Rfam assigns this 254-nucleotide sequence from Amycolatopsis antarctica to the family "Actinobacteria sRNA Ms_IGR-5". Taxonomically the source falls in Amycolatopsis (Bacteria, Bacillati, Actinomycetes, Pseudonocardiales). The literature on the family includes a 2013 paper in RNA by Li et al., "Identification of small RNAs in Mycobacterium smegmatis using heterologous Hfq". The base pairs follow the family's consensus structure. By type it is a small RNA.
RNA sequence: ACACGAGAAGGGAGGUGGUCCGAAGUUGAAGAACUACAGGACUCGUGAGGUGACUGUCCGCUAGCGGACAGCGCGCACUGGACUUUCUCCACAGGGACUUCACCCGACCACCUGUCGGCUCGUCACCUGUGUGCGUGCCUGCCUGCUGGCGAAUACCAGGCGGUCACCGGAUCCCCGGCACUCCCGAGACCCAGUCCUGCUCGGGCCACGGACGGCUGACGACGUCUGCGGAGCGGUGCCGGGGAUUCUCAUAU
Numbered sequence: 001a002c003a004c005g006a007g008a009a010g011g012g013a014g015g016u017g018g019u020c021c022g023a024a025g026u027u028g029a030a031g032a033a034c035u036a037c038a039g040g041a042c043u044c045g046u047g048a049g050g051u052g053a054c055u056g057u058c059c060g061c062u063a064g065c066g067g068a069c070a071g072c073g074c075g076c077a078c079u080g081g082a083c084u085u086u087c088u089c090c091a092c093a094g095g096g097a098c099u100u101c102a103c104c105c106g107a108c109c110a111c112c113u114g115u116c117g118g119c120u121c122g123u124c125a126c127c128u129g130u131g132u133g134c135g136u137g138c139c140u141g142c143c144u145g146c147u148g149g150c151g152a153a154u155a156c157c158a159g160g161c162g163g164u165c166a167c168c169g170g171a172u173c174c175c176c177g178g179c180a181c182u183c184c185c186g187a188g189a190c191c192c193a194g195u196c197c198u199g200c201u202c203g204g205g206c207c208a209c210g211g212a213c214g215g216c217u218g219a220c221g222a223c224g225u226c227u228g229c230g231g232a233g234c235g236g237u238g239c240c241g242g243g244g245a246u247u248c249u250c251a252u253a254u
Stems, first nucleotide, its partner, number of pairs: 014058006059151007067143001069141002073138003169248013183205006
About this RNA: A search with the family's covariance model found it, with a score of 92 bits.